[Rfam]
RNA sequence: CGUAACGUCGAGCCGUGCGCGCAACACCGCCCAAGAGCAGUUUUGUUCGUUUGGCUCGCGAUAUGA
Numbered sequence: 001c002g003u004a005a006c007g008u009c010g011a012g013c014c015g016u017g018c019g020c021g022c023a024a025c026a027c028c029g030c031c032c033a034a035g036a037g038c039a040g041u042u043u044u045g046u047u048c049g050u051u052u053g054g055c056u057c058g059c060g061a062u063a064u065g066a
Base pairs, nucleotide, nucleotide: 001065002064003063006060007059009058010057011056012055013054014053018049019048021046022045023044024043026041027040
The record is a 66-nucleotide RNA sequence from Eptatretus burgeri, which matches "mir-375 microRNA precursor family" in Rfam. A reference for the family is Chen et al. (2005), "The developmental miRNA profiles of zebrafish as determined by small RNA cloning", Genes Dev. The match comes from Rfam's covariance-model search (55 bits). Taxonomically the source falls in Eptatretus (Eukaryota, Bilateria, Cyclostomata, Myxinidae).